[Rfam]
RNA sequence: UAGACAUACUAGGGGAGUCAUUAUGACUGAGAUGUUCAAUUGAACGGACCCUUUGAACCUGUGAGUUGAGACUCGCGUAGGGAAGUAGUCUAAGGAAUAG
Numbered sequence: 001u002a003g004a005c006a007u008a009c010u011a012g013g014g015g016a017g018u019c020a021u022u023a024u025g026a027c028u029g030a031g032a033u034g035u036u037c038a039a040u041u042g043a044a045c046g047g048a049c050c051c052u053u054u055g056a057a058c059c060u061g062u063g064a065g066u067u068g069a070g071a072c073u074c075g076c077g078u079a080g081g082g083a084a085g086u087a088g089u090c091u092a093a094g095g096a097a098u099a100g
Base pairs, nucleotide, nucleotide: 007087008086009085010084011052012051013050014049017027018026019025020024034045035044036043037042058081059080060079061078062075063074064073065072

This 100-nucleotide sequence from Candidatus Enterococcus clewellii belongs to the Rfam family "TPP riboswitch aptamer (THI element)". Gene Ontology term of the family: thiamine pyrophosphate binding. It scores 66 bits against the family's covariance model.